[Rfam]
RNA sequence: UAUUUUUUGUGUGAAUAGUGUUCAGCACCAAGGACAGGUGUGUUCAUCUGAGUGUGCGUGGUGUUCAGCACCAAGGACAGGUAUGUUUUGUG
Numbered sequence: 001u002a003u004u005u006u007u008u009g010u011g012u013g014a015a016u017a018g019u020g021u022u023c024a025g026c027a028c029c030a031a032g033g034a035c036a037g038g039u040g041u042g043u044u045c046a047u048c049u050g051a052g053u054g055u056g057c058g059u060g061g062u063g064u065u066c067a068g069c070a071c072c073a074a075g076g077a078c079a080g081g082u083a084u085g086u087u088u089u090g091u092g
Base pairs, nucleotide, nucleotide: 004083006081007080008079009078010077016073018071019070020069021068022067024065025064026063027062028061029060030059032053035050036049037048038047039046040045
The family of this 92-nucleotide RNA sequence from Branchiostoma floridae is "mir-2060 microRNA precursor family". A search with the family's covariance model found it, with a score of 74 bits.